RNA sequence: ACAGUACAAACUGAACAGGCGAUGGGAAUUCCAGAGAGCCGGGCCAUCAUAUGGCAACAGAUAAAUACAACAUCUGUGGGACAGUA
Numbered sequence: 001a002c003a004g005u006a007c008a009a010a011c012u013g014a015a016c017a018g019g020c021g022a023u024g025g026g027a028a029u030u031c032c033a034g035a036g037a038g039c040c041g042g043g044c045c046a047u048c049a050u051a052u053g054g055c056a057a058c059a060g061a062u063a064a065a066u067a068c069a070a071c072a073u074c075u076g077u078g079g080g081a082c083a084g085u086a
Base pairs, nucleotide, nucleotide: 010085011084012083013082016080018040019039020038023033024032025031026030043055044054045053046052047051057077058076059075060074061073062072
The family of this 86-nucleotide RNA from Anaerosporobacter mobilis is "NiCo (Nickel/Cobalt) riboswitch aptamer". Gene Ontology terms of the family: cobalt ion binding and metal ion homeostasis. The family's consensus secondary structure is taken from published work. The family is grouped with related families in Rfam's "NiCo_riboswitches". The literature on the family includes a 2015 paper in Mol Cell by Furukawa et al., "Bacterial riboswitches cooperatively bind Ni(2+) or Co(2+) ions and control expression of heavy metal transporters".